[Rfam]
Nucleotides: 308
Base pairs, nucleotide, nucleotide: 001040002039003038004023005022006021007020008019009018010017028037029036030035044307045306046305047304048303049302050301051300052299054298057295058294059292060291061290064288065287066286068284070283071282072281073280075278076277078275079274080268081267082266083265084264086262087261089259090258091257094255098254099253100252101251102250103249104248105247107242108241110240111239112238113237114236116233117232118231119230121229123227124226125225127170128169129168130167131166132165135163136162137161138160139159140158141157142153143152144151145150171176178223179222180221181220182219187216189214190213191212196207197206198205
Number, partner (000 for none) and nucleotide at each position: 001040g002039c003038c004023g005022a006021g007020c008019u009018c010017a011000g012000c013000a014000g015000c016000g017010u018009g019008a020007g021006c022005u023004u024000g025000u026000a027000a028037c029036c030035c031000a032000a033000g034000c035030g036029g037028g038003g039002g040001c041000a042000u043000u044307a045306g046305g047304g048303u049302g050301g051300u052299g053000u054298g055000g056000a057295c058294g059292u060291g061290g062000c063000c064288g065287u066286a067000u068284g069000g070283u071282u072281g073280c074000u075278g076277g077000c078275c079274u080268g081267g082266g083265u084264c085000u086262g087261c088000a089259g090258u091257g092000c093000a094255a095000u096000u097000g098254g099253u100252g101251g102250c103249c104248c105247g106000c107242c108241c109000g110240u111239u112238c113237c114236a115000a116233g117232u118231u119230g120000c121229g122000u123227a124226g125225u126000u127170g128169g129168g130167c131166c132165g133000g134000c135163g136162g137161g138160g139159c140158u141157u142153a143152a144151g145150c146000g147000a148000a149000a150145g151144c152143u153142u154000u155000a156000a157141g158140g159139g160138u161137c162136c163135c164000a165132c166131g167130g168129u169128u170127c171176c172000u173000a174000g175000a176171g177000u178223g179222g180221c181220a182219g183000g184000c185000a186000u187216u188000g189214c190213g191212u192000g193000a194000g195000g196207c197206u198205g199000g200000u201000u202000u203000c204000a205198c206197a207196g208000a209000g210000c211000a212191g213190c214189g215000a216187a217000u218000a219182c220181u221180g222179c223178c224000c225125g226124c227123u228000u229121c230119c231118a232117a233116c234000g235000g236114u237113g238112g239111a240110a241108g242107g243000a244000u245000a246000a247105c248104g249103g250102g251101c252100c253099g254098c255094u256000g257091c258090a259089c260000u261087g262086u263000u264084g265083g266082c267081c268080c269000g270000g271000u272000u273000g274079g275078g276000c277076c278075u279000c280073g281072c282071a283070g284068c285000c286066u287065a288064c289000u290061u291060c292059a293000a294058c295057g296000a297000a298054c299052c300051a301050c302049c303048a304047c305046u306045u307044u308000u
The family of this 308-nucleotide RNA sequence from Leersia perrieri is "Plant signal recognition particle RNA". Clan: SRP clan.